[Rfam]
RNA: Histone 3' UTR stem-loop
Organism: Oryctolagus cuniculus
RNA sequence: UCAAAGGCUCUUUUCAGAGCCACCCACUCUUUUCUGUAAAGUGCUG
Number, nucleotide and partner (000 for none) at each position: 001u000002c000003a000004a000005a000006g021007g020008c019009u018010c017011u016012u000013u000014u000015c000016a011017g010018a009019g008020c007021c006022a000023c000024c000025c000026a000027c000028u000029c000030u000031u000032u000033u000034c000035u000036g000037u000038a000039a000040a000041g000042u000043g000044c000045u000046g000